[Rfam]
RNA: mir-981 microRNA precursor family
RNA sequence: UCUCAUGAGUUCCGGGUUUCGCGAUAAACGCAGCCGAUUUUAAACUGGUUCGUUGUCGACGAAACCUGCAAUUAUUGGGA
Numbered sequence: 001u002c003u004c005a006u007g008a009g010u011u012c013c014g015g016g017u018u019u020c021g022c023g024a025u026a027a028a029c030g031c032a033g034c035c036g037a038u039u040u041u042a043a044a045c046u047g048g049u050u051c052g053u054u055g056u057c058g059a060c061g062a063a064a065c066c067u068g069c070a071a072u073u074a075u076u077g078g079g080a
Stems, first nucleotide, its partner, number of pairs: 001080005013068009030051001032050004